[Rfam]
RNA: RAGATH-18 RNA
RNA sequence: CCCUUGGAGCGUUAUACCAAACAAAAGUAGUUAGUUGAGUUAUUUUAACGACAAAAUUGGACGUGUUGAAUAGGGAA
Numbered sequence: 001c002c003c004u005u006g007g008a009g010c011g012u013u014a015u016a017c018c019a020a021a022c023a024a025a026a027g028u029a030g031u032u033a034g035u036u037g038a039g040u041u042a043u044u045u046u047a048a049c050g051a052c053a054a055a056a057u058u059g060g061a062c063g064u065g066u067u068g069a070a071u072a073g074g075g076a077a
Base pairs, nucleotide, nucleotide: 001075002074003073004072009064010063011062012061013060022059023058024057030052031051032050034049035048036047037046038045
Dot-bracket structure: ((((....(((((........(((.....(((.(((((......))))))))....)))))))).......))))..